RNA sequence: UGUAAAAAACAUUAUUUAGCGUGAUUUUCUAUCAACAGCUAACAAUUGUUAUUAAUGCCUAGCGCAAUCAUAAGGAUAAUUUUUCAAAAAGGCUAUAAAAACGAUUGGGGGAUGAAAAAUGGACGCUCAAGCA
Numbered sequence: 001u002g003u004a005a006a007a008a009a010c011a012u013u014a015u016u017u018a019g020c021g022u023g024a025u026u027u028u029c030u031a032u033c034a035a036c037a038g039c040u041a042a043c044a045a046u047u048g049u050u051a052u053u054a055a056u057g058c059c060u061a062g063c064g065c066a067a068u069c070a071u072a073a074g075g076a077u078a079a080u081u082u083u084u085c086a087a088a089a090a091g092g093c094u095a096u097a098a099a100a101a102c103g104a105u106u107g108g109g110g111g112a113u114g115a116a117a118a119a120u121g122g123a124c125g126c127u128c129a130a131g132c133a
Stems, first nucleotide, its partner, number of pairs: 018127004043107008058092002
About this RNA
PrfA thermoregulator UTR: a 133-nucleotide RNA from Listeria ivanovii. Lineage of the source: Bacteria > Bacillota > Bacilli > Caryophanales > Listeria. For this family Rfam cites "An RNA thermosensor controls expression of virulence genes in Listeria monocytogenes" (Johansson et al., Cell, 2002). It is annotated as an RNA thermoregulator. The base pairs follow the family's consensus structure, which was predicted with PFOLD. About the family: In Listeria monocytogenes, virulence genes are maximally expressed at 37 degrees C, almost silent at 30 degrees C and controlled by PrfA, a transcriptional activator whose expression is thermoregulated. It has been shown that the untranslated mRNA (UTR) preceding prfA, forms a secondary structure, which masks the ribosome binding region. This family also contains UTRs from other closely related bacteria.